Background
Shown here is a 78-nucleotide RNA sequence from Pelusios castaneus, a member of the family "Mammalian CPEB3 ribozyme". The base pairs follow the family's consensus structure, which is taken from published work. Its family is annotated with RNA nuclease activity in the Gene Ontology.
[Rfam]
RNA sequence: AAUGAUACUAUAAGCAACACAGCAGAAGUGUUCACAUCGCAGCCCUUGUCAGAUUCUUAAGGAUCUGUGAAUUCUGCU
Numbered sequence: 001a002a003u004g005a006u007a008c009u010a011u012a013a014g015c016a017a018c019a020c021a022g023c024a025g026a027a028g029u030g031u032u033c034a035c036a037u038c039g040c041a042g043c044c045c046u047u048g049u050c051a052g053a054u055u056c057u058u059a060a061g062g063a064u065c066u067g068u069g070a071a072u073u074c075u076g077c078u
Stems, first nucleotide, its partner, number of pairs: 013046002021078007028040003050067007
Dot-bracket structure: ............[[......((((((((((.......)))....]]...(((((((....)))))))....)))))))
A search with the family's covariance model found it, with a score of 56 bits.